[Rfam]
RNA sequence: GGUUUUGGGUAAUCGAGCGCAGCCUCAGUUGCGUUAGGAAGGUCCAUGCUCGCACGGGCUGCGAUGCCCGUAGUGUUUGUGCUCGCUGAAAAAAUAAGGCGGGGCACCGAGUAAUCGGUGACGGCGGAAAAAACGGCUAAGGCUUUUGGCUAGGUCCGAGUAUUCCUGAAAAGUGCCACAGUGACGAAGCAAGUUGGGAAACCAACUUGGUGGAACGCGGUAAACCCCUCAAGCGGUAAACCCAAACUACGGUCGGGGAGCUUUGGAUAGCGAAUUGAAGCGAUUCCAGGGGAGCAGUUAUUAACUGCUGAGAUAGAUGAUUACCACGGUCUAGGUUGGCCUGAACCUAGACUUCGACAAAACAUGGCCUACAGAA
Dot-bracket structure: ...(((((((((((.((((((........))))))....[[[.[[[[[.((((((((((......)))))).....(((.(((((((..........))))))(((((((....)))))).)((.((((.....(((...(((.....)))..)))......))))......(((((............((((((((....)))))))).........)))..))))).)))))))....(((...........)))...(((((((.................))))))).(((((.......))))).........)))))))..(((((((((........))))))))).........]]]]]]]].).)))
Numbered sequence: 001g002g003u004u005u006u007g008g009g010u011a012a013u014c015g016a017g018c019g020c021a022g023c024c025u026c027a028g029u030u031g032c033g034u035u036a037g038g039a040a041g042g043u044c045c046a047u048g049c050u051c052g053c054a055c056g057g058g059c060u061g062c063g064a065u066g067c068c069c070g071u072a073g074u075g076u077u078u079g080u081g082c083u084c085g086c087u088g089a090a091a092a093a094a095u096a097a098g099g100c101g102g103g104g105c106a107c108c109g110a111g112u113a114a115u116c117g118g119u120g121a122c123g124g125c126g127g128a129a130a131a132a133a134c135g136g137c138u139a140a141g142g143c144u145u146u147u148g149g150c151u152a153g154g155u156c157c158g159a160g161u162a163u164u165c166c167u168g169a170a171a172a173g174u175g176c177c178a179c180a181g182u183g184a185c186g187a188a189g190c191a192a193g194u195u196g197g198g199a200a201a202c203c204a205a206c207u208u209g210g211u212g213g214a215a216c217g218c219g220g221u222a223a224a225c226c227c228c229u230c231a232a233g234c235g236g237u238a239a240a241c242c243c244a245a246a247c248u249a250c251g252g253u254c255g256g257g258g259a260g261c262u263u264u265g266g267a268u269a270g271c272g273a274a275u276u277g278a279a280g281c282g283a284u285u286c287c288a289g290g291g292g293a294g295c296a297g298u299u300a301u302u303a304a305c306u307g308c309u310g311a312g313a314u315a316g317a318u319g320a321u322u323a324c325c326a327c328g329g330u331c332u333a334g335g336u337u338g339g340c341c342u343g344a345a346c347c348u349a350g351a352c353u354u355c356g357a358c359a360a361a362a363c364a365u366g367g368c369c370u371a372c373a374g375a376a
Stems, first nucleotide, its partner, number of pairs: 004376003007372001008325007016035006040370003044367005050236004054071006077232003081228001082103006104122001105120006123227002126166004135156003141151003173225002175221003190209008241257003261291007293309005328353009